RNA sequence: AGGUAUUUGAGUAUAUGGGGUCGAAUCGCUUACAUUCAACGGCAGCCGGUGAUGAAAAAAAACGGGGGAUAAAAUCCCCCGCCUGGACGCUGU
Numbered sequence: 001a002g003g004u005a006u007u008u009g010a011g012u013a014u015a016u017g018g019g020g021u022c023g024a025a026u027c028g029c030u031u032a033c034a035u036u037c038a039a040c041g042g043c044a045g046c047c048g049g050u051g052a053u054g055a056a057a058a059a060a061a062a063c064g065g066g067g068g069a070u071a072a073a074a075u076c077c078c079c080c081g082c083c084u085g086g087a088c089g090c091u092g093u
Base pairs, nucleotide, nucleotide: 008038010036011035012034016032017031018030019029062084063081064080065079066078067077068076069075070074

The family of this 93-nucleotide RNA from Sodalis glossinidius is "sraA". By type it is a small RNA. It is one of the family's seed sequences. For this family Rfam cites "Novel small RNA-encoding genes in the intergenic regions of Escherichia coli" (Argaman et al., Curr Biol, 2001). Taxonomically the source falls in Sodalis glossinidius (Bacteria, Pseudomonadota, Gammaproteobacteria, Sodalis).